[Rfam]
Nucleotides: 145
Base pairs, nucleotide, nucleotide: 013034017031018030019029020028021027022026043065044064045063046062047061048060051083052082053081054080066079067078068077114144115143120139121138122137123136124135125134126133
Number, partner (000 for none) and nucleotide at each position: 001000a002000a003000g004000a005000u006000g007000g008000u009000g010000c011000a012000a013034g014000c015000c016000u017031g018030c019029u020028g021027u022026c023000a024000u025000c026022g027021a028020c029019a030018g031017c032000a033000a034013c035000c036000c037000u038000u039000a040000g041000a042000g043065g044064u045063a046062g047061c048060c049000c050000g051083a052082a053081c054080c055000u056000a057000a058000a059000a060048g061047g062046c063045u064044a065043c066079g067078c068077c069000a070000c071000a072000u073000a074000g075000u076000g077068g078067g079066u080054g081053g082052u083051u084000c085000u086000c087000c088000c089000c090000a091000a092000g093000u094000g095000c096000g097000a098000u099000a100000a101000g102000c103000a104000u105000c106000c107000g108000g109000u110000a111000g112000c113000u114144c115143g116000c117000a118000c119000g120139g121138u122137c123136a124135c125134a126133g127000c128000g129000c130000u131000c132000u133126c134125u135124g136123u137122g138121a139120u140000g141000g142000a143115u144114g145000c